The record is a 78-nucleotide RNA from Scytalopus superciliaris, which matches "Small nucleolar RNA SNORD74" in Rfam. It scores 71 bits against the family's covariance model. On this family, see Galardi et al., Mol Cell Biol 2002: "Purified box C/D snoRNPs are able to reproduce site-specific 2'-O-methylation of target RNA in vitro". The source organism's lineage runs through Eukaryota, Vertebrata, Dipnotetrapodomorpha, Sauria and Scytalopus.
RNA sequence: AUGCCCGCGCAUGAUGAGAACCGCGUUGGUAGGGACAUCUGAGAGCAUGAUGAAUGCCAACGUAUCUGAGCUGGGCAU
Numbered sequence: 001a002u003g004c005c006c007g008c009g010c011a012u013g014a015u016g017a018g019a020a021c022c023g024c025g026u027u028g029g030u031a032g033g034g035a036c037a038u039c040u041g042a043g044a045g046c047a048u049g050a051u052g053a054a055u056g057c058c059a060a061c062g063u064a065u066c067u068g069a070g071c072u073g074g075g076c077a078u
Stems, first nucleotide, its partner, number of pairs: 001078005
Dot-bracket structure: (((((....................................................................)))))